[Rfam]
RNA sequence: GGUUGUCCGAAAGAAGACGUGGGGGGCAACUCACAGGUCCCUGGUGACCUUAAUCCCCCGGGAAGGUCUGAGACGAGGUCCCACUCCCACUGGGUGGAGUGGUGGGUCCGAGAAGGACCUCGUUCGUGAGAACGAGAGGCUGUAACAGAAAUACACCCUGCGGGGUUUGAACGACAGCCUCGACCGGCGAAUGCCUGAGUGCGAUCGUCCGAUUAACACAAUUCAGACUAGUCUUCGGAAAACC
Numbered sequence: 001g002g003u004u005g006u007c008c009g010a011a012a013g014a015a016g017a018c019g020u021g022g023g024g025g026g027c028a029a030c031u032c033a034c035a036g037g038u039c040c041c042u043g044g045u046g047a048c049c050u051u052a053a054u055c056c057c058c059c060g061g062g063a064a065g066g067u068c069u070g071a072g073a074c075g076a077g078g079u080c081c082c083a084c085u086c087c088c089a090c091u092g093g094g095u096g097g098a099g100u101g102g103u104g105g106g107u108c109c110g111a112g113a114a115g116g117a118c119c120u121c122g123u124u125c126g127u128g129a130g131a132a133c134g135a136g137a138g139g140c141u142g143u144a145a146c147a148g149a150a151a152u153a154c155a156c157c158c159u160g161c162g163g164g165g166u167u168u169g170a171a172c173g174a175c176a177g178c179c180u181c182g183a184c185c186g187g188c189g190a191a192u193g194c195c196u197g198a199g200u201g202c203g204a205u206c207g208u209c210c211g212a213u214u215a216a217c218a219c220a221a222u223u224c225a226g227a228c229u230a231g232u233c234u235u236c237g238g239a240a241a242a243c244c
Stems, first nucleotide, its partner, number of pairs: 001244004009236003016210001022059005035050005068226005077185004105119005120135006136181007156165003
The family of this 244-nucleotide RNA from Haemonchus placei is "Nuclear RNase P". A reference for the family is Brown (1999), "The Ribonuclease P Database", Nucleic Acids Res. The family's RNA type in Rfam is ribozyme. From the family's description: Ribonuclease P (RNase P) is a ubiquitous endoribonuclease, found in archaea, bacteria and eukarya as well as chloroplasts and mitochondria. Its best characterised activity is the generation of mature 5'-ends of tRNAs by cleaving the 5'-leader elements of precursor-tRNAs. Pairs were carried over by alignment from the consensus structure, which is taken from published work. It scores 114 bits against the family's covariance model.